[Rfam]
Rfam assigns this 101-nucleotide RNA from Viridothelium virens to the family "Small nucleolar RNA Z13/snr52".
The base pairs follow the family's consensus structure, which was predicted with PFOLD.
Rfam 15.1 lists 1,203 matches to the family in 866 species.
Rfam classes the family as a C/D-box small nucleolar RNA.
Lineage of the source: Eukaryota > Opisthokonta > Dothideomycetes > Trypetheliaceae > Viridothelium.
RNA sequence: CUCGCUUGCGUGAUGAAUUACUACGGAUGUAAACCACUUCAGUCCUUCUGAAUGCGCAAAUCCAUGUUGACAUUUCCGUUGCCUUCCUUCUGACUACUUUA
Numbered sequence: 001c002u003c004g005c006u007u008g009c010g011u012g013a014u015g016a017a018u019u020a021c022u023a024c025g026g027a028u029g030u031a032a033a034c035c036a037c038u039u040c041a042g043u044c045c046u047u048c049u050g051a052a053u054g055c056g057c058a059a060a061u062c063c064a065u066g067u068u069g070a071c072a073u074u075u076c077c078g079u080u081g082c083c084u085u086c087c088u089u090c091u092g093a094c095u096a097c098u099u100u101a
Stems, first nucleotide, its partner, number of pairs: 004099001024078004